int-alpA RNA: a 66-nucleotide RNA from Solidesulfovibrio carbinoliphilus. Taxonomically the source falls in Solidesulfovibrio carbinoliphilus (Bacteria, Desulfovibrionia, Desulfovibrionaceae, Solidesulfovibrio). The family's consensus secondary structure is taken from published work. Acidobacteria (1 example), Planctomycetes (1 example), Proteobacteria.

RNA sequence: CCCCGCCCUAGGGUAGCUCCUGAAAAGCCGGAACCCUACCGGCCUGGGCGGGGAUUCAACAUAGGG
Numbered sequence: 001c002c003c004c005g006c007c008c009u010a011g012g013g014u015a016g017c018u019c020c021u022g023a024a025a026a027g028c029c030g031g032a033a034c035c036c037u038a039c040c041g042g043c044c045u046g047g048g049c050g051g052g053g054a055u056u057c058a059a060c061a062u063a064g065g066g
Stems, first nucleotide, its partner, number of pairs: 001053008011021003027043005035066003